A member of the RNA family "RNase MRP" from Oreochromis niloticus, 260 nucleotides long.
It is annotated as a ribozyme.
Nucleotides: 260
Stems, first nucleotide, its partner, number of pairs: 002260007010252002015211005022067007037052005072245002075243004087099004100114005117184009130172003140168004150161004214230002217227002
Number, partner (000 for none) and nucleotide at each position: 001000g002260g003259g004258c005257a006256u007255u008254c009000a010252g011251a012000a013000g014000g015211c016210u017209u018208g019207c020000a021000c022067u023066c024065u025064g026063g027062g028061c029000u030000a031000c032000a033000u034000a035000c036000g037052g038051g039050g040049a041048a042000c043000c044000u045000g046000g047000u048041u049040u050039c051038u052037c053000c054000u055000c056000u057000c058000u059000u060000c061028g062027c063026c064025c065024a066023g067022g068000g069000g070000a071000a072245a073244g074000u075243c076242c077241c078240c079000g080000g081000a082000c083000a084000c085000g086000u087099g088098g089097c090096a091000g092000a093000a094000a095000g096090u097089g098088c099087c100114c101113u102112g103111g104110u105000g106000u107000g108000a109000a110104a111103c112102c113101a114100g115000g116000a117184u118183c119182g120181a121180u122179c123178u124177g125176c126000g127000c128000u129000c130172c131171a132170c133000c134000a135000c136000g137000a138000g139000u140168g141167a142166g143165c144000u145000g146000a147000g148000a149000u150161g151160u152159u153158c154000u155000g156000c157000u158153g159152a160151a161150c162000u163000g164000a165143g166142c167141u168140c169000g170132g171131u172130g173000a174000u175000c176125g177124c178123a179122g180121g181120u182119c183118g184117a185000a186000u187000u188000u189000g190000u191000c192000a193000g194000c195000g196000u197000u198000g199000a200000u201000a202000g203000u204000u205000a206000u207019g208018c209017a210016a211015g212000a213000g214230a215229g216000c217227u218226g219000c220000u221000a222000g223000u224000a225000a226218c227217g228000c229215c230214u231000u232000a233000a234000c235000a236000g237000a238000a239000c240078g241077g242076g243075g244073c245072u246000c247000a248000u249000u250000c251011u252010c253000c254008g255007a256006a257005u258004g259003c260002u